[Rfam]
RNA: Vault RNA
Organism: Synaphobranchus kaupii
RNA sequence: GCGUCGGUUUAGCUCAGUGGUUGCUUCGUUGUCAAACUAACCAUCGUUUUGCCAUACUCCACCUUCUCCGGAGGGUCGAACCACGGGCGCUGUCCGGCAUUUUG
Numbered sequence: 001g002c003g004u005c006g007g008u009u010u011a012g013c014u015c016a017g018u019g020g021u022u023g024c025u026u027c028g029u030u031g032u033c034a035a036a037c038u039a040a041c042c043a044u045c046g047u048u049u050u051g052c053c054a055u056a057c058u059c060c061a062c063c064u065u066c067u068c069c070g071g072a073g074g075g076u077c078g079a080a081c082c083a084c085g086g087g088c089g090c091u092g093u094c095c096g097g098c099a100u101u102u103u104g
Base pairs, nucleotide, nucleotide: 003098004097005096006095007094012088013087014086015085017084018083019082020081025080026079027078028077
Dot-bracket structure: ..(((((....((((.((((....((((................................................)))))))))))).....)))))......